The record is a 387-nucleotide part of an RNA from Fusarium tricinctum, which matches "Ascomycota telomerase RNA" in Rfam. For this family Rfam cites "The common ancestral core of vertebrate and fungal telomerase RNAs" (Qi et al., Nucleic Acids Res, 2013). The family is grouped with related families in Rfam's "Telomerase clan". A search with the family's covariance model found it, with a score of 332 bits.
[Rfam]
RNA sequence: AAUCACACAGAAGGAGUUCUCUUGUCGGUGUUGGUGGGUUUCCAUAUUGCGUUCUGAUAUGACGACUUCUGGUGGAACUGUGUAUACGAAAGUAUUGAACCAUUAUGGAAGUGUCAGCUCACGAAACAGUCUUCACCUCUGCAAUGGUCAGUGUCGCUCGACGAUUCUCGCGGUUGACGUUGGAAGCAGCGCCGGGACCCAUCUCGAGUUGGAGUCAAAGCUUCGUGCUUGUCCGGUGCUGUGAAAGACCCUGCCACUGAGUUGAAAUCCCCGAUGUUGUAUCGCAUUGGCGAGAUUGGGUUGUACUAUUGGAUCUAGGACAGGCCUGGUUGGUGUGGCAGUCCUGGCUGUCCUCUCGCCUGAAAACGGUGUAGAGGACAGCCCCCC
Numbered sequence: 001a002a003u004c005a006c007a008c009a010g011a012a013g014g015a016g017u018u019c020u021c022u023u024g025u026c027g028g029u030g031u032u033g034g035u036g037g038g039u040u041u042c043c044a045u046a047u048u049g050c051g052u053u054c055u056g057a058u059a060u061g062a063c064g065a066c067u068u069c070u071g072g073u074g075g076a077a078c079u080g081u082g083u084a085u086a087c088g089a090a091a092g093u094a095u096u097g098a099a100c101c102a103u104u105a106u107g108g109a110a111g112u113g114u115c116a117g118c119u120c121a122c123g124a125a126a127c128a129g130u131c132u133u134c135a136c137c138u139c140u141g142c143a144a145u146g147g148u149c150a151g152u153g154u155c156g157c158u159c160g161a162c163g164a165u166u167c168u169c170g171c172g173g174u175u176g177a178c179g180u181u182g183g184a185a186g187c188a189g190c191g192c193c194g195g196g197a198c199c200c201a202u203c204u205c206g207a208g209u210u211g212g213a214g215u216c217a218a219a220g221c222u223u224c225g226u227g228c229u230u231g232u233c234c235g236g237u238g239c240u241g242u243g244a245a246a247g248a249c250c251c252u253g254c255c256a257c258u259g260a261g262u263u264g265a266a267a268u269c270c271c272c273g274a275u276g277u278u279g280u281a282u283c284g285c286a287u288u289g290g291c292g293a294g295a296u297u298g299g300g301u302u303g304u305a306c307u308a309u310u311g312g313a314u315c316u317a318g319g320a321c322a323g324g325c326c327u328g329g330u331u332g333g334u335g336u337g338g339c340a341g342u343c344c345u346g347g348c349u350g351u352c353c354u355c356u357c358g359c360c361u362g363a364a365a366a367c368g369g370u371g372u373a374g375a376g377g378a379c380a381g382c383c384c385c386c387c
Stems, first nucleotide, its partner, number of pairs: 196216003199212003218230004
Lineage of the source: Eukaryota > sordariomyceta > Nectriaceae > Fusarium > Fusarium tricinctum species complex.